[Rfam]
RNA sequence: GCCCGGGUAGCUCAGUUGGUAGAGCACGUGACUGAAAAUCACGGUGUCGGCGGUUCGACUCCGUCCCCGGGCA
Numbered sequence: 001g002c003c004c005g006g007g008u009a010g011c012u013c014a015g016u017u018g019g020u021a022g023a024g025c026a027c028g029u030g031a032c033u034g035a036a037a038a039u040c041a042c043g044g045u046g047u048c049g050g051c052g053g054u055u056c057g058a059c060u061c062c063g064u065c066c067c068c069g070g071g072c073a
Base pairs, nucleotide, nucleotide: 001072002071003070004069005068006067007066010025011024012023013022027043028042029041030040031039049065050064051063052062053061
This 73-nucleotide RNA from Novosphingobium sp. MD-1 belongs to the Rfam family "tRNA". The source organism's lineage runs through Bacteria, Pseudomonadati, Pseudomonadota, Sphingomonadaceae and Novosphingobium. The base pairs follow the family's consensus structure, which is taken from published work. Rfam classes the family as a transfer RNA.